The family of this 106-nucleotide sequence from Parapedobacter indicus is "SAM riboswitch aptamer (S box leader)".
The base pairs follow the family's consensus structure, which is taken from published work.
The organism belongs to Parapedobacter, within Bacteria.
The match comes from Rfam's covariance-model search (77 bits).
RNA sequence: CGCUUAUGGAGAAAGGCAGAGGGAAUGGACCCUGUGAAGCCUUAGCAACCUGUCGGUAGACAAGGUGCUAAAUUCUACCCAGAUAAGGAUCCGGGAAAGAUAAGCA
Numbered sequence: 001c002g003c004u005u006a007u008g009g010a011g012a013a014a015g016g017c018a019g020a021g022g023g024a025a026u027g028g029a030c031c032c033u034g035u036g037a038a039g040c041c042u043u044a045g046c047a048a049c050c051u052g053u054c055g056g057u058a059g060a061c062a063a064g065g066u067g068c069u070a071a072a073u074u075c076u077a078c079c080c081a082g083a084u085a086a087g088g089a090u091c092c093g094g095g096a097a098a099g100a101u102a103a104g105c106a
Stems, first nucleotide, its partner, number of pairs: 002105006013043005021032003026077004044069004049065002051062004073098001078095003082091002